[Rfam]
RNA: Actinobacteria sRNA Ms_IGR-7
RNA sequence: CAGAGGUGCCUCGCCGAUCGAGCGUGGUGGAAGCACAGGAACUCCCACCAUCGCAGGUCAGCAGGCACCUCUCGCUGUUCCGUCCUCCGCAGGCCGAACGUCACGCCGUGGAUCGAG
Numbered sequence: 001c002a003g004a005g006g007u008g009c010c011u012c013g014c015c016g017a018u019c020g021a022g023c024g025u026g027g028u029g030g031a032a033g034c035a036c037a038g039g040a041a042c043u044c045c046c047a048c049c050a051u052c053g054c055a056g057g058u059c060a061g062c063a064g065g066c067a068c069c070u071c072u073c074g075c076u077g078u079u080c081c082g083u084c085c086u087c088c089g090c091a092g093g094c095c096g097a098a099c100g101u102c103a104c105g106c107c108g109u110g111g112a113u114c115g116a117g
Stems, first nucleotide, its partner, number of pairs: 002072010016059002019056001022054003025050004030045001032043002099115002101111003